[Rfam]
RNA: Plastid-ccsA-ndhD-1 3UTR RNA
Organism: Lupinus angustifolius
Nucleotides: 052
Base pairs, nucleotide, nucleotide: 009047010046011045012044013043014042015041016040017039018038019037021035022034023033025031
Number, partner (000 for none) and nucleotide at each position: 001000a002000a003000a004000u005000c006000g007000u008000c009047g010046a011045g012044a013043a014042c015041c016040c017039c018038u019037u020000a021035a022034g023033u024000a025031a026000u027000a028000u029000a030000a031025u032000g033023a034022u035021u036000c037019a038018a039017g040016g041015g042014g043013u044012u045011c046010u047009c048000a049000c050000a051000a052000a